The family of this 66-nucleotide sequence from Pelodictyon luteolum is "Lnt RNA". By type it is a cis-regulatory element. The source organism's lineage runs through Bacteria, Chlorobiota, Chlorobiales, Pelodictyon and Pelodictyon luteolum.
[Rfam]
RNA sequence: CAGGGGCCCGUUUUACUGAAAGCCUACCCCUGUUAAAUAACAGCUUGAAAUAAAUUUAAAGAAUAA
Number, nucleotide and partner (000 for none) at each position: 001c032002a031003g030004g029005g028006g027007c000008c000009c000010g000011u000012u000013u000014u000015a000016c000017u000018g000019a000020a000021a000022g000023c000024c000025u000026a000027c006028c005029c004030c003031u002032g001033u000034u000035a000036a000037a000038u000039a000040a000041c000042a000043g000044c000045u000046u000047g000048a000049a000050a000051u000052a000053a000054a000055u000056u000057u000058a000059a000060a000061g000062a000063a000064u000065a000066a000